[Rfam]
RNA sequence: GCUGUUCUGGCCGAGUGGUCUAAGGCGCUGCGUUCAGGUCGCAGUCCUCUCAGGAGGGCGCAGGUUCGAACCCUGCGGACAGCA
Numbered sequence: 001g002c003u004g005u006u007c008u009g010g011c012c013g014a015g016u017g018g019u020c021u022a023a024g025g026c027g028c029u030g031c032g033u034u035c036a037g038g039u040c041g042c043a044g045u046c047c048u049c050u051c052a053g054g055a056g057g058g059c060g061c062a063g064g065u066u067c068g069a070a071c072c073c074u075g076c077g078g079a080c081a082g083c084a
Stems, first nucleotide, its partner, number of pairs: 001083007010026003028044005060076005

The family of this 84-nucleotide RNA from Caenorhabditis nigoni is "tRNA". The family's consensus secondary structure is taken from published work.